[Rfam]
RNA: Fluoride riboswitch aptamer (crcB RNA motif)
Organism: Photobacterium jeanii
RNA sequence: UUUGGCAAAGGUGAUGGGGUUCCACCUACUUAACCGCCAUGUGGCUGAUGACUCCUACAGAAAA
Numbered sequence: 001u002u003u004g005g006c007a008a009a010g011g012u013g014a015u016g017g018g019g020u021u022c023c024a025c026c027u028a029c030u031u032a033a034c035c036g037c038c039a040u041g042u043g044g045c046u047g048a049u050g051a052c053u054c055c056u057a058c059a060g061a062a063a064a
Stems, first nucleotide, its partner, number of pairs: 010026004016055006036045003